A member of the RNA family "G-CSF factor stem-loop destabilising element (SLDE)" from Phyllostomus discolor, 96 nucleotides long. The match comes from Rfam's covariance-model search (96 bits). A reference for the family is Putland et al. (2002), "RNA destabilization by the granulocyte colony-stimulating factor stem-loop destabilizing element involves a single stem-loop that promotes deadenylation", Mol Cell Biol. The family's RNA type in Rfam is cis-regulatory element. This family represents the granulocyte colony-stimulating factor stem-loop destabilising element (G-CSF SLDE). G-CSF is secreted by fibroblasts and endothelial cells in response to the inflammatory mediators interleukin-1 (IL-1) and tumour necrosis factor alpha and by activated macrophages. The synthesis of G-CSF is regulated both transcriptionally and through control of mRNA stability.

[Rfam]
RNA sequence: CCGAGGGCCCCCAACGUGGGGCCCUUGGCAGCAUCUGGAAAUCUCCCGAGUGGGAGAUGAGACAGUCUGUUUAAUAUUUAAACAGCAGUGUUCCCA
Numbered sequence: 001c002c003g004a005g006g007g008c009c010c011c012c013a014a015c016g017u018g019g020g021g022c023c024c025u026u027g028g029c030a031g032c033a034u035c036u037g038g039a040a041a042u043c044u045c046c047c048g049a050g051u052g053g054g055a056g057a058u059g060a061g062a063c064a065g066u067c068u069g070u071u072u073a074a075u076a077u078u079u080a081a082a083c084a085g086c087a088g089u090g091u092u093c094c095c096a
Stems, first nucleotide, its partner, number of pairs: 003026006010020003034062002041058007067085008